[Rfam]
RNA sequence: GUGGGCGGAAGCUCAUCGCAGAGGUCACAUGCUGAGUGCUCGUCACUCCACCAAUCACCUCGGGGAAGGUCUGAGACAGGAGCCAAUAGUCGCCCUCGCAGGGUGUCACCUGAUACAGGUGAGCGGGAGAACCAGAAACAUGGGCAUAGUGUGCUGUUCCUCACAGGAGACGCUGGAUGGCGCACUUGAUCGCCCCCAGCUGAUGUGAAGCGCACUGGCUUGCAAUCUCCCGCGGCUGGCAUGUGAGUGCGAUGGAUGAGGUGGAAAUGCUCCAGAACCCAAUUCAGACUACUCUCCGCCCAC
Numbered sequence: 001g002u003g004g005g006c007g008g009a010a011g012c013u014c015a016u017c018g019c020a021g022a023g024g025u026c027a028c029a030u031g032c033u034g035a036g037u038g039c040u041c042g043u044c045a046c047u048c049c050a051c052c053a054a055u056c057a058c059c060u061c062g063g064g065g066a067a068g069g070u071c072u073g074a075g076a077c078a079g080g081a082g083c084c085a086a087u088a089g090u091c092g093c094c095c096u097c098g099c100a101g102g103g104u105g106u107c108a109c110c111u112g113a114u115a116c117a118g119g120u121g122a123g124c125g126g127g128a129g130a131a132c133c134a135g136a137a138a139c140a141u142g143g144g145c146a147u148a149g150u151g152u153g154c155u156g157u158u159c160c161u162c163a164c165a166g167g168a169g170a171c172g173c174u175g176g177a178u179g180g181c182g183c184a185c186u187u188g189a190u191c192g193c194c195c196c197c198a199g200c201u202g203a204u205g206u207g208a209a210g211c212g213c214a215c216u217g218g219c220u221u222g223c224a225a226u227c228u229c230c231c232g233c234g235g236c237u238g239g240c241a242u243g244u245g246a247g248u249g250c251g252a253u254g255g256a257u258g259a260g261g262u263g264g265a266a267a268u269g270c271u272c273c274a275g276a277a278c279c280c281a282a283u284u285c286a287g288a289c290u291a292c293u294c295u296c297c298g299c300c301c302a303c
Stems, first nucleotide, its partner, number of pairs: 001303004007297003012260006021061004034048005071287005081237004091105005106122006123233007144219002262274004
A member of the RNA family "Nuclear RNase P" from Neogobius melanostomus, 303 nucleotides long. Pairs were carried over by alignment from the consensus structure, which is taken from published work. It is annotated as a ribozyme. On this family, see Frank and Pace, Annu Rev Biochem 1998: "Ribonuclease P: unity and diversity in a tRNA processing ribozyme". Gene Ontology terms of the family: tRNA processing, ribonuclease P activity and ribonuclease P complex. About the family: Ribonuclease P (RNase P) is a ubiquitous endoribonuclease, found in archaea, bacteria and eukarya as well as chloroplasts and mitochondria. Its best characterised activity is the generation of mature 5'-ends of tRNAs by cleaving the 5'-leader elements of precursor-tRNAs.